[Rfam]
RNA sequence: AUCCCAUGUUUACUACUACUUGCUACCUCUAUAAUUUGAGAUUUCGAGUAUUUUUGCGAUGCAUGGAAAAUAAAAGACUAAAAUGGCCAGGUUUCUUUUCAUAUUCCAAAUUGAUGAAAAGUUACAAUGUCAUUUCACAAAA
Numbered sequence: 001a002u003c004c005c006a007u008g009u010u011u012a013c014u015a016c017u018a019c020u021u022g023c024u025a026c027c028u029c030u031a032u033a034a035u036u037u038g039a040g041a042u043u044u045c046g047a048g049u050a051u052u053u054u055u056g057c058g059a060u061g062c063a064u065g066g067a068a069a070a071u072a073a074a075a076g077a078c079u080a081a082a083a084u085g086g087c088c089a090g091g092u093u094u095c096u097u098u099u100c101a102u103a104u105u106c107c108a109a110a111u112u113g114a115u116g117a118a119a120a121g122u123u124a125c126a127a128u129g130u131c132a133u134u135u136c137a138c139a140a141a142a
Stems, first nucleotide, its partner, number of pairs: 004066006017050006028039002081135007091125002095121008
RNA: Caenorhabditis snoRNA ceN80